About this RNA:
A member of the RNA family "Eukaryotic large subunit ribosomal RNA" from Pythium oligandrum, 309 nucleotides of a longer RNA. Lineage of the source: Eukaryota > Stramenopiles > Oomycota > Pythiaceae > Pythium.

[Rfam]
RNA sequence: GAGUCUAACAUGUGUGCAAGUGUUCGGGUGUGGAAACCCAAACGCGAAAUGAAAGUGAAGGGCAGUUUACUGUCUGAGGUAGGAAACCUUUGUUCUCAAGGGUGGCACUAUCGACCGAUCAUGAACCUUCGUGGUGAAAGAUUUGAGUUUGAGCACAUAUGUUGGUACCCGAAAGAUGGUGAACUAUGCCUGAGUAGGGUGAAGCCAGGGGAAACUCUGGUGGAGGCUCGUAGCGAUUCUGACGUGCAAAUCGAUCGUCAAACUUGGGUAUAGGGGCGAAAGACUAAUCGAACCAUCUAGUAGCUGGUU
Numbered sequence: 001g002a003g004u005c006u007a008a009c010a011u012g013u014g015u016g017c018a019a020g021u022g023u024u025c026g027g028g029u030g031u032g033g034a035a036a037c038c039c040a041a042a043c044g045c046g047a048a049a050u051g052a053a054a055g056u057g058a059a060g061g062g063c064a065g066u067u068u069a070c071u072g073u074c075u076g077a078g079g080u081a082g083g084a085a086a087c088c089u090u091u092g093u094u095c096u097c098a099a100g101g102g103u104g105g106c107a108c109u110a111u112c113g114a115c116c117g118a119u120c121a122u123g124a125a126c127c128u129u130c131g132u133g134g135u136g137a138a139a140g141a142u143u144u145g146a147g148u149u150u151g152a153g154c155a156c157a158u159a160u161g162u163u164g165g166u167a168c169c170c171g172a173a174a175g176a177u178g179g180u181g182a183a184c185u186a187u188g189c190c191u192g193a194g195u196a197g198g199g200u201g202a203a204g205c206c207a208g209g210g211g212a213a214a215c216u217c218u219g220g221u222g223g224a225g226g227c228u229c230g231u232a233g234c235g236a237u238u239c240u241g242a243c244g245u246g247c248a249a250a251u252c253g254a255u256c257g258u259c260a261a262a263c264u265u266g267g268g269u270a271u272a273g274g275g276g277c278g279a280a281a282g283a284c285u286a287a288u289c290g291a292a293c294c295a296u297c298u299a300g301u302a303g304c305u306g307g308u309u
Stems, first nucleotide, its partner, number of pairs: 005165013020045003026039004049056002078112005086103005114148002116145003119141002125135002168307002171304001175297006184273011195261001197229004204221007233258004238254002241252002275285002